[Rfam]
Nucleotides: 081
Base pairs, nucleotide, nucleotide: 001076003074004073005072006071007070010068012067013066014065015064020063021062022061023060024059026037027036028035029034040052041051042050043049
Number, partner (000 for none) and nucleotide at each position: 001076a002000u003074a004073g005072g006071a007070u008000g009000a010068c011000g012067c013066c014065g015064g016000a017000u018000c019000a020063c021062g022061c023060g024059a025000g026037g027036g028035u029034u030000u031000c032000u033000u034029a035028a036027c037026c038000a039000g040052c041051a042050u043049g044000c045000u046000u047000g048000u049043c050042a051041u052040g053000u054000g055000g056000u057000a058000g059024u060023c061022g062021c063020g064015c065014c066013g067012g068010g069000u070007a071006u072005c073004c074003u075000u076001u077000c078000u079000u080000u081000u

Rfam assigns this 81-nucleotide RNA sequence to the family "DUF3800-VII RNA". The family's consensus secondary structure is taken from published work. The family's RNA type in Rfam is small RNA.